[Rfam]
RNA sequence: UGGUCAAGGUGAAGUGAACCUUUGCCUAGUCUUAUUUUUUUAAUAAGGCAAAAUCUUCAAAUUGCGGGAAAUUCUUAAAGACAAAUCUACCAAGUUAAUACAGUAAUGUAAUUAAUGGAACAGGUAAUGACUCGUUGUAAGGUAAAAACGAUUUGUAUGAAGAAAUGAAAUAGAUUAUCCGCAGCCAAGUACCAACUGUCUUUUAAGGAUAAAGGUAUGCAGUUCAUCGACUAAAUGGAGAUUGGUAAAUAAUUCUGUAUAAUUAUUUGCUUAAGAUAUAGUCAGUCAUAACUGAAAGGUUAUG
Numbered sequence: 001u002g003g004u005c006a007a008g009g010u011g012a013a014g015u016g017a018a019c020c021u022u023u024g025c026c027u028a029g030u031c032u033u034a035u036u037u038u039u040u041u042a043a044u045a046a047g048g049c050a051a052a053a054u055c056u057u058c059a060a061a062u063u064g065c066g067g068g069a070a071a072u073u074c075u076u077a078a079a080g081a082c083a084a085a086u087c088u089a090c091c092a093a094g095u096u097a098a099u100a101c102a103g104u105a106a107u108g109u110a111a112u113u114a115a116u117g118g119a120a121c122a123g124g125u126a127a128u129g130a131c132u133c134g135u136u137g138u139a140a141g142g143u144a145a146a147a148a149c150g151a152u153u154u155g156u157a158u159g160a161a162g163a164a165a166u167g168a169a170a171u172a173g174a175u176u177a178u179c180c181g182c183a184g185c186c187a188a189g190u191a192c193c194a195a196c197u198g199u200c201u202u203u204u205a206a207g208g209a210u211a212a213a214g215g216u217a218u219g220c221a222g223u224u225c226a227u228c229g230a231c232u233a234a235a236u237g238g239a240g241a242u243u244g245g246u247a248a249a250u251a252a253u254u255c256u257g258u259a260u261a262a263u264u265a266u267u268u269g270c271u272u273a274a275g276a277u278a279u280a281g282u283c284a285g286u287c288a289u290a291a292c293u294g295a296a297a298g299g300u301u302a303u304g
Stems, first nucleotide, its partner, number of pairs: 001028003005024005052243005058237002063183006073174003184223002189218004197211005227284001229283005245270009289302005
Rfam assigns this 304-nucleotide sequence from Metarhizium acridum to the family "Group I catalytic intron". Taxonomically the source falls in Metarhizium acridum (Eukaryota, Fungi, leotiomyceta, Hypocreomycetidae). Rfam 15.1 lists 5,602 matches to the family in 1,395 species. The match comes from Rfam's covariance-model search (99 bits). Its family is annotated with Group I intron splicing in the Gene Ontology.